[Rfam]
RNA: mir-3389 microRNA precursor family
RNA sequence: CCAAUCAUAGCCGAUGUUCCACAAGAGAGGGCCAAGGACUGACCCCUGUGGAACACCGCGCUCGACGGG
Numbered sequence: 001c002c003a004a005u006c007a008u009a010g011c012c013g014a015u016g017u018u019c020c021a022c023a024a025g026a027g028a029g030g031g032c033c034a035a036g037g038a039c040u041g042a043c044c045c046c047u048g049u050g051g052a053a054c055a056c057c058g059c060g061c062u063c064g065a066c067g068g069g
Stems, first nucleotide, its partner, number of pairs: 005065002008060001010059002013056001015055006024049001026047002029045003033041002